The family of this 124-nucleotide RNA from Mus musculus is "Small nucleolar RNA SNORA17". Its family is annotated with nucleolus and RNA processing in the Gene Ontology. Pairs were carried over by alignment from the consensus structure, which was predicted with RNAalifold. It scores 71 bits against the family's covariance model. For this family Rfam cites "Mapping to nucleotide resolution of pseudouridine residues in large subunit ribosomal RNAs from representative eukaryotes, prokaryotes, archaebacteria, mitochondria and chloroplasts" (Ofengand and Bakin, J Mol Biol, 1997). From the family's description: snoRNA ACA 17 belongs to the H/ACA family of snoRNAs and is predicted to guide pseudouridylation of the 28S rRNA at positions U4659 and U4598. It shares the same host gene together with ACA43. NB This family has a high threshold value to exclude a large number of closely related sequences that do not appear to have conserved H and ACA boxes, and may be pseudogenes.
[Rfam]
RNA sequence: UCUUCCUCCCCAGAGUGUUACAGGUGUGGCUGCUGUGUCACAUGUGCAUCAGUAGGUGGCAGAGAGGACAUAGGCUAUGCUCUGAUCUGUGAACAUAUGAAUGGAUGAUUAGUAGCCUAACAUU
Number, nucleotide and partner (000 for none) at each position: 001u000002c062003u061004u000005c059006c058007u056008c055009c000010c000011c052012a000013g050014a000015g049016u048017g000018u000019u000020a000021c046022a045023g000024g000025u042026g041027u040028g039029g038030c037031u000032g000033c000034u000035g000036u000037g030038u029039c028040a027041c026042a025043u000044g000045u022046g021047c000048a016049u015050c013051a000052g011053u000054a000055g008056g007057u000058g006059g005060c000061a003062g002063a000064g000065a000066g000067g000068a000069c000070a000071u119072a118073g117074g116075c115076u114077a113078u112079g000080c000081u000082c000083u108084g000085a106086u000087c104088u103089g102090u101091g000092a000093a000094c000095a000096u000097a000098u000099g000100a000101a090102u089103g088104g087105a000106u085107g000108a083109u000110u000111a000112g078113u077114a076115g075116c074117c073118u072119a071120a000121c000122a000123u000124u000